[Rfam]
Notes: Rfam assigns this 96-nucleotide RNA sequence from Streptococcus sp. DD12 to the family "Purine riboswitch aptamer". The family's consensus secondary structure is taken from published work. Clan: Purine riboswitches. Lineage of the source: Bacteria > Bacillati > Bacilli > Lactobacillales > Streptococcus. A search with the family's covariance model found it, with a score of 49 bits.
RNA sequence: ACAAUAAGGGCUGUUAGAGCUUAUUUAUGCUGGGAAUUGGCCCAGUGUUUCUACAAGACACCGGAAUGUCUAACAAUAAGUGACUAGUUGAUUACU
Numbered sequence: 001a002c003a004a005u006a007a008g009g010g011c012u013g014u015u016a017g018a019g020c021u022u023a024u025u026u027a028u029g030c031u032g033g034g035a036a037u038u039g040g041c042c043c044a045g046u047g048u049u050u051c052u053a054c055a056a057g058a059c060a061c062c063g064g065a066a067u068g069u070c071u072a073a074c075a076a077u078a079a080g081u082g083a084c085u086a087g088u089u090g091a092u093u094a095c096u
Stems, first nucleotide, its partner, number of pairs: 019081007030045005056071005